[Rfam]
RNA: Xanthomonas sRNA sX9
Organism: Sulfuricella sp.
RNA sequence: AUGUACUUCCAUGUACAUUCCGGUUCCUGCGCUCCGGCCGUCCCCACCCUGCAGCCGCUCGCGACAUUUGUUGAGAC
Dot-bracket structure: .(((((......)))))...(((..(....)..)))...........(.((..(..............)..)).)..